[Rfam]
RNA sequence: AGCCGUGCGGUGAGCACAGAGCGAACUAUUCUUUCGCCUUUUACUAAAGAAUACCGUGUGCUCGCCGCUUAAAGCGGCAUACGCCUAUUUUUGGAGGGGUGUUUCUCAGGAAAAUGCC
Numbered sequence: 001a002g003c004c005g006u007g008c009g010g011u012g013a014g015c016a017c018a019g020a021g022c023g024a025a026c027u028a029u030u031c032u033u034u035c036g037c038c039u040u041u042u043a044c045u046a047a048a049g050a051a052u053a054c055c056g057u058g059u060g061c062u063c064g065c066c067g068c069u070u071a072a073a074g075c076g077g078c079a080u081a082c083g084c085c086u087a088u089u090u091u092u093g094g095a096g097g098g099g100u101g102u103u104u105c106u107c108a109g110g111a112a113a114a115u116g117c118c
Stems, first nucleotide, its partner, number of pairs: 003077004008067011027053008098118006